[Rfam]
Nucleotides: 086
Base pairs, nucleotide, nucleotide: 008054009053010052011051012050015047016046017074018073019072020071021070029043030042031041032040063081064080065079066078067077
Number, partner (000 for none) and nucleotide at each position: 001000u002000a003000a004000a005000a006000g007000c008054g009053u010052c011051g012050c013000g014000a015047c016046u017074g018073g019072c020071g021070c022000g023000u024000c025000a026000g027000g028000g029043g030042u031041g032040g033000g034000g035000a036000c037000a038000a039000a040032c041031c042030a043029c044000c045000g046016g047015g048000g049000a050012g051011c052010g053009a054008u055000u056000g057000g058000g059000g060000c061000g062000g063081a064080g065079g066078c067077c068000g069000u070021g071020c072019g073018c074017c075000u076000g077067g078066g079065u080064c081063u082000u083000c084000g085000c086000g
The family of this 86-nucleotide RNA from Spongiactinospora gelatinilytica is "ZMP/ZTP riboswitch aptamer (pfl RNA motif)". The base pairs follow the family's consensus structure, which is taken from published work. The literature on the family includes a 2015 paper in Nat Struct Mol Biol by Jones and Ferre-D'Amare, "Recognition of the bacterial alarmone ZMP through long-distance association of two RNA subdomains". It scores 47 bits against the family's covariance model. NCBI's taxonomy places the organism under Bacteria, Bacillati, Streptosporangiales, Streptosporangiaceae, Spongiactinospora.